[Rfam]
RNA sequence: CUCGCCCGAAUGAUGAAGUAUUACGGAUGUAAAGUGCCAUUCUAUUGGCCAAAUGUCCUAGAGCGCAUACAAUCGUGUGGAUUUCUCCGUUGCCUUCCUUCUGACUCCUUAC
Numbered sequence: 001c002u003c004g005c006c007c008g009a010a011u012g013a014u015g016a017a018g019u020a021u022u023a024c025g026g027a028u029g030u031a032a033a034g035u036g037c038c039a040u041u042c043u044a045u046u047g048g049c050c051a052a053a054u055g056u057c058c059u060a061g062a063g064c065g066c067a068u069a070c071a072a073u074c075g076u077g078u079g080g081a082u083u084u085c086u087c088c089g090u091u092g093c094c095u096u097c098c099u100u101c102u103g104a105c106u107c108c109u110u111a112c
Base pairs, nucleotide, nucleotide: 004110024089025088026087027086
Dot-bracket structure: ...(...................((((..........................................................))))....................)..